[Rfam]
RNA sequence: GGCAGUAAUAGCGAAGAGGGGUGAGAAUCCCCUCCGCCGGAAGGGCAAGGGUUUCACGGCAAUGUUCUUCAGCCGUGGGUGAGCCGGUCCUAAGGCAACGCCUAACUGGUAGUUGUCGAAAGGGAAACAGGUUAAUAUUCCUGUGCCACACCGGUAGGUGCGGUAACGCAAGCCUAUCUCCCGACGGGUUAGGGUAGGGGGAUGCUGGUAACCCAGCACCAAAUGCAUAAGCCCCUGGAGAGCCGUAAUGGUGAGAAGGGGGUGAAAGCAUGAUGGGUCUGACGUAUGUCGGAUUCCUCUGAUCCCCAGCUCCAAUGAAAAGGGAGAGGGAUCGAUCCGGUGUGUCCGUACCUAGAACCGACACUGGUGCCCCUAGGUGAGAAGCCUAAGGCGUCU
Numbered sequence: 001g002g003c004a005g006u007a008a009u010a011g012c013g014a015a016g017a018g019g020g021g022u023g024a025g026a027a028u029c030c031c032c033u034c035c036g037c038c039g040g041a042a043g044g045g046c047a048a049g050g051g052u053u054u055c056a057c058g059g060c061a062a063u064g065u066u067c068u069u070c071a072g073c074c075g076u077g078g079g080u081g082a083g084c085c086g087g088u089c090c091u092a093a094g095g096c097a098a099c100g101c102c103u104a105a106c107u108g109g110u111a112g113u114u115g116u117c118g119a120a121a122g123g124g125a126a127a128c129a130g131g132u133u134a135a136u137a138u139u140c141c142u143g144u145g146c147c148a149c150a151c152c153g154g155u156a157g158g159u160g161c162g163g164u165a166a167c168g169c170a171a172g173c174c175u176a177u178c179u180c181c182c183g184a185c186g187g188g189u190u191a192g193g194g195u196a197g198g199g200g201g202a203u204g205c206u207g208g209u210a211a212c213c214c215a216g217c218a219c220c221a222a223a224u225g226c227a228u229a230a231g232c233c234c235c236u237g238g239a240g241a242g243c244c245g246u247a248a249u250g251g252u253g254a255g256a257a258g259g260g261g262g263u264g265a266a267a268g269c270a271u272g273a274u275g276g277g278u279c280u281g282a283c284g285u286a287u288g289u290c291g292g293a294u295u296c297c298u299c300u301g302a303u304c305c306c307c308a309g310c311u312c313c314a315a316u317g318a319a320a321a322g323g324g325a326g327a328g329g330g331a332u333c334g335a336u337c338c339g340g341u342g343u344g345u346c347c348g349u350a351c352c353u354a355g356a357a358c359c360g361a362c363a364c365u366g367g368u369g370c371c372c373c374u375a376g377g378u379g380a381g382a383a384g385c386c387u388a389a390g391g392c393g394u395c396u
Base pairs, nucleotide, nucleotide: 016034017033018032019031020030021029035393036392037391038390043372044371045370046369049352050351054078055077056076057075058074059073063071064070085348086347087346089123090122094117095116096115097114098113099112100110101109102108127144128143129142130141131140147344148343149342150341151340152339153338154337180324181323182322186312187311188310189309190308192306193305194304197300198299199298200297201296203218204217205216206215207214223271224270225269226268232262233261234260235259236258242252243251244250283288358367359366374388375387376386377385